Notes:
Eukaryotic large subunit ribosomal RNA: a 487-nucleotide part of an RNA from Pyrenochaeta sp. MPI-SDFR-AT-0127. Taxonomically the source falls in Pyrenochaeta (Eukaryota, Fungi, Pleosporomycetidae, Cucurbitariaceae).

RNA sequence: UAGAAUAAUAUAGAUAAGGGAAGUUAGUAAAAUAGAUCUAUAACUUUAGGAAAAGGAUUAGCUCUAAAGAUUAGGUAUAUUAGGCCUUAGGGAGAAGCCUCUAGCGUAGAAGGGUACUAGCUAUAAGGUAGGCGCCUUUUAGCGCUAGAGUAUAGGUACCCUUAGUAGGCUUCAGCUAUCUAGCGUACGUUUAAUAACUAACUUAGAACUAGUAUAGAUAAGGAGAAUCUAACUAUCUAAUUAAAAUAUAGUAUUAUAAUUACUAGAAAGUAGUAUUAAUAUAAUAUAAUUUCUACCUAGUACUCUAAAUAUUAAAGUAAAGAGAUUUAACUAAGUAUAAGUAAAUAGUAGGAGUAACUAUAACUCUUUCAAGGUAGCUAAAUAUCUUAUUAUCUAAUUAGUAAUAUAUAUAAAUAGAUUAAUAAGAUUCCUACUAUUUCUAUUUACUAUCUAGUAAAACUAUAGCUAAGGGAAUAGGCUUAGCUAA
Numbered sequence: 001u002a003g004a005a006u007a008a009u010a011u012a013g014a015u016a017a018g019g020g021a022a023g024u025u026a027g028u029a030a031a032a033u034a035g036a037u038c039u040a041u042a043a044c045u046u047u048a049g050g051a052a053a054a055g056g057a058u059u060a061g062c063u064c065u066a067a068a069g070a071u072u073a074g075g076u077a078u079a080u081u082a083g084g085c086c087u088u089a090g091g092g093a094g095a096a097g098c099c100u101c102u103a104g105c106g107u108a109g110a111a112g113g114g115u116a117c118u119a120g121c122u123a124u125a126a127g128g129u130a131g132g133c134g135c136c137u138u139u140u141a142g143c144g145c146u147a148g149a150g151u152a153u154a155g156g157u158a159c160c161c162u163u164a165g166u167a168g169g170c171u172u173c174a175g176c177u178a179u180c181u182a183g184c185g186u187a188c189g190u191u192u193a194a195u196a197a198c199u200a201a202c203u204u205a206g207a208a209c210u211a212g213u214a215u216a217g218a219u220a221a222g223g224a225g226a227a228u229c230u231a232a233c234u235a236u237c238u239a240a241u242u243a244a245a246a247u248a249u250a251g252u253a254u255u256a257u258a259a260u261u262a263c264u265a266g267a268a269a270g271u272a273g274u275a276u277u278a279a280u281a282u283a284a285u286a287u288a289a290u291u292u293c294u295a296c297c298u299a300g301u302a303c304u305c306u307a308a309a310u311a312u313u314a315a316a317g318u319a320a321a322g323a324g325a326u327u328u329a330a331c332u333a334a335g336u337a338u339a340a341g342u343a344a345a346u347a348g349u350a351g352g353a354g355u356a357a358c359u360a361u362a363a364c365u366c367u368u369u370c371a372a373g374g375u376a377g378c379u380a381a382a383u384a385u386c387u388u389a390u391u392a393u394c395u396a397a398u399u400a401g402u403a404a405u406a407u408a409u410a411u412a413a414a415u416a417g418a419u420u421a422a423u424a425a426g427a428u429u430c431c432u433a434c435u436a437u438u439u440c441u442a443u444u445u446a447c448u449a450u451c452u453a454g455u456a457a458a459a460c461u462a463u464a465g466c467u468a469a470g471g472g473a474a475u476a477g478g479c480u481u482a483g484c485u486a487a
Stems, first nucleotide, its partner, number of pairs: 001453004011446006018439003035059005044049001060210002063207005069199001071197003075188004080183004084166002090160002099150009109140007117132002120129003211215001223432001225430005230424002234248003251287008262274004291418002295349002300346002302342003307338001310337003318329004350368006369373001389405005466483005